[Rfam]
RNA sequence: CAAGUGGAGGCUCCGAUCUCCCACCUGGCUGUCCGUUCAGGACGGCGGGUCACCGGUCAGGCGGCGACCAUCGUUCCGUACGGACGAUGGGCCCGCCCGAUAGCCCCGCGGUUCACCGCGGCGGUGUUCCGGUAGUUCCUGGAGCCUCGCCUUGUGUCCCGUCCGGGGCAUUUUUG
Numbered sequence: 001c002a003a004g005u006g007g008a009g010g011c012u013c014c015g016a017u018c019u020c021c022c023a024c025c026u027g028g029c030u031g032u033c034c035g036u037u038c039a040g041g042a043c044g045g046c047g048g049g050u051c052a053c054c055g056g057u058c059a060g061g062c063g064g065c066g067a068c069c070a071u072c073g074u075u076c077c078g079u080a081c082g083g084a085c086g087a088u089g090g091g092c093c094c095g096c097c098c099g100a101u102a103g104c105c106c107c108g109c110g111g112u113u114c115a116c117c118g119c120g121g122c123g124g125u126g127u128u129c130c131g132g133u134a135g136u137u138c139c140u141g142g143a144g145c146c147u148c149g150c151c152u153u154g155u156g157u158c159c160c161g162u163c164c165g166g167g168g169c170a171u172u173u174u175u176g
Stems, first nucleotide, its partner, number of pairs: 001027002004024004008019002028046007060097005068090008103169006109161003117156003120151005126145005
This 176-nucleotide RNA sequence from Streptomyces sp. SID7982 belongs to the Rfam family "Streptomyces RNA 1601". Identified by deep sequencing of transcriptome at the end of exponential growth phase. Appears longer on northern blot than sequencing transcript. Streptomyces specific. On this family, see Vockenhuber et al., RNA Biol 2011: "Deep sequencing-based identification of small non-coding RNAs in Streptomyces coelicolor".